RNA sequence: ACCUGCAUUGCUGGGCAACUUCUCCUUUGGCAGAUGCGCAAUGUGCUACUGCCAAAGGAAAUUUGCCCCGGAAUUCAUCU
Numbered sequence: 001a002c003c004u005g006c007a008u009u010g011c012u013g014g015g016c017a018a019c020u021u022c023u024c025c026u027u028u029g030g031c032a033g034a035u036g037c038g039c040a041a042u043g044u045g046c047u048a049c050u051g052c053c054a055a056a057g058g059a060a061a062u063u064u065g066c067c068c069c070g071g072a073a074u075u076c077a078u079c080u
Stems, first nucleotide, its partner, number of pairs: 005076001007074003011070001013068006023059003028054006
This 80-nucleotide sequence from Miscanthus lutarioriparius belongs to the Rfam family "mir-399 microRNA precursor family". Gene Ontology terms of the family: miRNA-mediated post-transcriptional gene silencing and RISC complex. A search with the family's covariance model found it, with a score of 67 bits. About the family: mir-399 was identified in both Arabidopsis thaliana and Oryza sativa computationally and was later experimentally verified. mir-399 is thought to target mRNAs coding for a phosphatase transporter. The mature sequence is excised from the 3' arm of the hairpin. The base pairs follow the family's consensus structure, which was predicted with PFOLD. For this family Rfam cites "Computational Identification of Plant MicroRNAs and Their Targets, Including a Stress-Induced miRNA" (Jones-Rhoades and Bartel, Mol Cell, 2004).